[Rfam]
RNA sequence: CAUCGGCUGCGGGCCCCUCUGGCGGAGCGCGUUUUCAUGCCUCCGUGAUGUCGGAGCCGAUGC
Numbered sequence: 001c002a003u004c005g006g007c008u009g010c011g012g013g014c015c016c017c018u019c020u021g022g023c024g025g026a027g028c029g030c031g032u033u034u035u036c037a038u039g040c041c042u043c044c045g046u047g048a049u050g051u052c053g054g055a056g057c058c059g060a061u062g063c
Stems, first nucleotide, its partner, number of pairs: 006057003010053003022046005027040003
terC RNA: a 63-nucleotide RNA from Methylobacterium sp. Leaf399. A search with the family's covariance model found it, with a score of 53 bits. Pairs were carried over by alignment from the consensus structure, which is taken from published work. The organism belongs to Methylobacterium, within Bacteria.